[Rfam]
RNA sequence: GCAGCGGGCAUCUAGGGUUCCGGUCUUUCAACUCCUCCAGAAAGACGCAGGUCCGAGAGGUGCCACCCGGUCAAAACAGUCCGGGAACACGGCGGGGCAAAAUCCCGGGAGAC
Numbered sequence: 001g002c003a004g005c006g007g008g009c010a011u012c013u014a015g016g017g018u019u020c021c022g023g024u025c026u027u028u029c030a031a032c033u034c035c036u037c038c039a040g041a042a043a044g045a046c047g048c049a050g051g052u053c054c055g056a057g058a059g060g061u062g063c064c065a066c067c068c069g070g071u072c073a074a075a076a077c078a079g080u081c082c083g084g085g086a087a088c089a090c091g092g093c094g095g096g097g098c099a100a101a102a103u104c105c106c107g108g109g110a111g112a113c
Stems, first nucleotide, its partner, number of pairs: 007064006015054002020051002022048001023046006066085005072079001088108001090111001094106003
Shown here is a 113-nucleotide RNA sequence from Parahoeflea phototrophica, a member of the family "Guanidine-I riboswitch aptamer". Pairs were carried over by alignment from the consensus structure. Its family is annotated with regulation of gene expression in the Gene Ontology.